The record is a 104-nucleotide RNA sequence from Arachis hypogaea, which matches "Plant small nucleolar RNA R71" in Rfam. The family's consensus secondary structure was predicted with PFOLD. Taxonomically the source falls in Arachis (Eukaryota, Embryophyta, rosids, dalbergioids sensu lato). The match comes from Rfam's covariance-model search (41 bits). Rfam classes the family as a C/D-box small nucleolar RNA. On this family, see Brown et al., Trends Plant Sci 2003: "Plant snoRNAs: functional evolution and new modes of gene expression".
RNA sequence: AUGCCAGAAGGACACCUUUUGGUUAAUUACUUGUAUAUUUCCCAAGCUUCAUAGAGGGAUUCACCUUUCUUCUAUUUGAAGGUUUGGACUUCCACUCUAAGCUU
Number, nucleotide and partner (000 for none) at each position: 001a104002u000003g102004c101005c000006a098007g000008a000009a000010g000011g000012a000013c000014a000015c000016c000017u000018u000019u000020u000021g000022g000023u000024u000025a000026a000027u000028u000029a000030c000031u000032u000033g000034u000035a000036u000037a000038u000039u000040u000041c000042c000043c000044a000045a000046g000047c000048u000049u000050c000051a000052u000053a000054g071055a070056g000057g068058g000059a000060u000061u000062c000063a000064c000065c000066u000067u000068u057069c000070u055071u054072c000073u000074a000075u000076u000077u000078g000079a000080a000081g000082g000083u000084u000085u000086g000087g000088a000089c000090u000091u000092c000093c000094a000095c000096u000097c000098u006099a000100a000101g004102c003103u000104u001